RNA sequence: AUGAAUGUUUUCUAGGGUUCCGCAGUCUGCUGGCUGGUCUGGACCGAGAGAAAACUCACAGCCUAGGCUGUGUCACGGAGGGAUAAAAGCCCGGGAGAU
Numbered sequence: 001a002u003g004a005a006u007g008u009u010u011u012c013u014a015g016g017g018u019u020c021c022g023c024a025g026u027c028u029g030c031u032g033g034c035u036g037g038u039c040u041g042g043a044c045c046g047a048g049a050g051a052a053a054a055c056u057c058a059c060a061g062c063c064u065a066g067g068c069u070g071u072g073u074c075a076c077g078g079a080g081g082g083a084u085a086a087a088a089g090c091c092c093g094g095g096a097g098a099u
Stems, first nucleotide, its partner, number of pairs: 007055006015045002020042002022039001023036005057072006074094001076097001080092003
The family of this 99-nucleotide RNA from Schinkia azotoformans is "Guanidine-I riboswitch aptamer". It scores 88 bits against the family's covariance model.